[Rfam]
RNA: cow-rumen-2 RNA
RNA sequence: AGCGAAGUACGGCGGGCACGCCGUACGUACAGCCGCCAUGGCAGUAUCGGAUAUAGCCGGAGUACAGGAUGACCGCCCCGUAAGCCGUUACGUAAGGCCCGUAA
Numbered sequence: 001a002g003c004g005a006a007g008u009a010c011g012g013c014g015g016g017c018a019c020g021c022c023g024u025a026c027g028u029a030c031a032g033c034c035g036c037c038a039u040g041g042c043a044g045u046a047u048c049g050g051a052u053a054u055a056g057c058c059g060g061a062g063u064a065c066a067g068g069a070u071g072a073c074c075g076c077c078c079c080g081u082a083a084g085c086c087g088u089u090a091c092g093u094a095a096g097g098c099c100c101g102u103a104a
Stems, first nucleotide, its partner, number of pairs: 002076001007026007039101001040099002042096001044091003048087003058080003063075001067074002
Dot-bracket structure: .[....(((((((......)))))))............((((.(((.(((.......(((..(...((....)))].)))....))).)))....).)).)...